[Rfam]
RNA sequence: CGAGAACCCUUUGAAUCAAGUAGUGUAGCGAUUCAAAUGGUUCUCAC
Numbered sequence: 001c002g003a004g005a006a007c008c009c010u011u012u013g014a015a016u017c018a019a020g021u022a023g024u025g026u027a028g029c030g031a032u033u034c035a036a037a038u039g040g041u042u043c044u045c046a047c
Stems, first nucleotide, its partner, number of pairs: 002045007010037008
The record is a 47-nucleotide RNA from Melianthus villosus, which matches "Plastid-ccsA-ndhD-2 3UTR RNA" in Rfam.
It is annotated as a cis-regulatory element.
Plastid ccsA-ndhD-2 is a non-coding RNA (ncRNA) recognised in plastids. It was found in the three prime untranslated region (3UTR) of ccsA and ndhD genes, its 3UTR location suggests a role in transcript maturation.
On this family, see Richter et al., Plant Commun 2023: "Retrograde signaling in plants: A critical review focusing on the GUN pathway and beyond".